[Rfam]
RNA: RNase MRP
Organism: Cuscuta europaea
RNA sequence: UGAUCGCAGGGCGACGUGAGUGGGCCGAACUUGUCCUUGUGGAUGGGCCAGGUCUAGGAAAGUCCCCGGGCCCUAUGCUGUAGAGAUACAGGCUCGGAAACGAGUGCUCACCUGGAAGAAGUCUUAUCCUAUAUAUUUGGGAGGUGCUGAGACGUGUGUGGAGCACUAUGGGCUUCAGCCGGUGUUGCUUUGGCUGAAUAAACAGUUAUUCACGUGGUUCUUCAUGGAACUAACAGAACGGGGCUUACGAUCCUGCGGUC
Number, nucleotide and partner (000 for none) at each position: 001u000002g260003a259004u258005c257006g256007c255008a254009g253010g252011g251012c000013g000014a215015c214016g213017u212018g211019a210020g000021u000022g055023g054024g053025c052026c051027g000028a000029a000030c000031u046032u045033g044034u043035c042036c041037u000038u000039g000040u000041g036042g035043a034044u033045g032046g031047g000048c000049c000050a000051g026052g025053u024054c023055u022056a000057g000058g000059a000060a246061a245062g244063u000064c243065c242066c241067c240068g000069g000070g000071c000072c000073c000074u000075a000076u000077g000078c000079u090080g089081u088082a087083g000084a000085g000086a000087u082088a081089c080090a079091g000092g105093c104094u103095c102096g101097g000098a000099a000100a000101c096102g095103a094104g093105u092106g000107c000108u000109c000110a000111c000112c000113u000114g000115g000116a000117a000118g000119a000120a000121g000122u000123c000124u000125u000126a000127u000128c000129c187130u000131a185132u000133a000134u000135a000136u000137u000138u000139g000140g000141g000142a000143g000144g173145u172146g000147c170148u000149g000150a000151g000152a000153c000154g166155u165156g164157u163158g000159u000160g000161g000162a000163g157164c156165a155166c154167u000168a000169u000170g147171g000172g145173c144174u000175u000176c000177a000178g000179c000180c000181g000182g000183u000184g000185u131186u000187g129188c000189u000190u000191u000192g000193g000194c000195u000196g000197a000198a000199u000200a000201a000202a000203c000204a000205g000206u000207u000208a000209u000210u019211c018212a017213c016214g015215u014216g000217g230218u229219u228220c227221u226222u000223c000224a000225u000226g221227g220228a219229a218230c217231u000232a000233a000234c000235a000236g000237a000238a000239c000240g067241g066242g065243g064244c062245u061246u060247a000248c000249g000250a000251u011252c010253c009254u008255g007256c006257g005258g004259u003260c002